RNA sequence: GCUAUCCUAUAAAAACUCUCAGGGCCUUACAUAAGACCCCGAAGUACAAUUUUUGGAGCCCUUGCUUCGGUAAGGGUA
Numbered sequence: 001g002c003u004a005u006c007c008u009a010u011a012a013a014a015a016c017u018c019u020c021a022g023g024g025c026c027u028u029a030c031a032u033a034a035g036a037c038c039c040c041g042a043a044g045u046a047c048a049a050u051u052u053u054u055g056g057a058g059c060c061c062u063u064g065c066u067u068c069g070g071u072a073a074g075g076g077u078a
Base pairs, nucleotide, nucleotide: 022039023038024037026035027034028033058077059076060075061074062073063072064071065070
The family of this 78-nucleotide sequence from Caenorhabditis auriculariae is "SmY spliceosomal RNA". On this family, see MacMorris et al., RNA 2007: "A novel family of C. elegans snRNPs contains proteins associated with trans-splicing". It is annotated as a spliceosomal small nuclear RNA.